[Rfam]
RNA: Small nucleolar RNA Z279/snoR105/snoR108
Nucleotides: 108
Stems, first nucleotide, its partner, number of pairs: 001108004014098005023043001025041003046086004051081002065079002068076001
Number, partner (000 for none) and nucleotide at each position: 001108g002107g003106g004105a005000a006000g007000u008000g009000a010000u011000g012000a013000g014098u015097g016096g017095u018094u019000g020000g021000c022000u023043c024000c025041c026040g027039c028000a029000a030000u031000a032000c033000a034000a035000a036000a037000a038000u039027g040026c041025g042000a043023g044000a045000u046086g047085g048084g049083u050000a051081u052080c053000c054000u055000c056000c057000c058000c059000a060000a061000a062000g063000c064000c065079u066078g067000g068076u069000u070000a071000c072000g073000a074000c075000a076068a077000a078066c079065g080052g081051g082000c083049a084048c085047u086046c087000u088000a089000a090000u091000c092000u093000u094018a095017a096016c097015c098014a099000a100000u101000c102000u103000g104000a105004u106003c107002c108001c